[Rfam]
RNA sequence: GCUCUGCAUUUACCACAAGGCGGUGCAGGCCGAUCACAAUAGGUGGUCAGCUUGGUUGUCCUGCUUCGGCAAACAAACUACAGGGUCUGGCAAUCUGCGGAGUAGUUUAGAGCGAAACGCGGCACCAGC
Number, nucleotide and partner (000 for none) at each position: 001g030002c029003u000004c028005u027006g026007c025008a024009u023010u022011u000012a000013c020014c019015a000016c000017a000018a000019g014020g013021c000022g010023g009024u008025g007026c006027a005028g004029g002030c001031c000032g000033a000034u000035c000036a000037c000038a000039a000040u000041a000042g000043g000044u000045g000046g000047u000048c000049a000050g000051c000052u000053u000054g000055g000056u000057u000058g000059u000060c000061c000062u071063g070064c069065u000066u000067c000068g000069g064070c063071a062072a000073a000074c000075a000076a000077a000078c000079u000080a000081c000082a000083g000084g000085g129086u000087c128088u127089g126090g125091c000092a000093a000094u000095c000096u121097g120098c119099g118100g000101a000102g000103u000104a000105g113106u112107u000108u000109a000110g000111a000112g106113c105114g000115a000116a000117a000118c099119g098120c097121g096122g000123c000124a000125c090126c089127a088128g087129c085
The family of this 129-nucleotide sequence is "Bacteriophage Diversity-Generating Retroelement RNA". A reference for the family is Handa et al. (2025), "RNA control of reverse transcription in a diversity-generating retroelement", Nature.